[Rfam]
RNA sequence: CGAGGAGAUAUCCAAAAGGAUCGCAUGAUCCCUCCUUAUCUCAUGUUCUCCAUGGAUCAAUGCGAUCCCUUUGGAUGCUUCCUC
Numbered sequence: 001c002g003a004g005g006a007g008a009u010a011u012c013c014a015a016a017a018g019g020a021u022c023g024c025a026u027g028a029u030c031c032c033u034c035c036u037u038a039u040c041u042c043a044u045g046u047u048c049u050c051c052a053u054g055g056a057u058c059a060a061u062g063c064g065a066u067c068c069c070u071u072u073g074g075a076u077g078c079u080u081c082c083u084c
Base pairs, nucleotide, nucleotide: 002084003083004082005081006080009077010076011075012074013073014072015071016070018068019067020066021065023063024062025061026059027058028057029056030055031054
RNA: mir-393 microRNA precursor family
Organism: Vanilla planifolia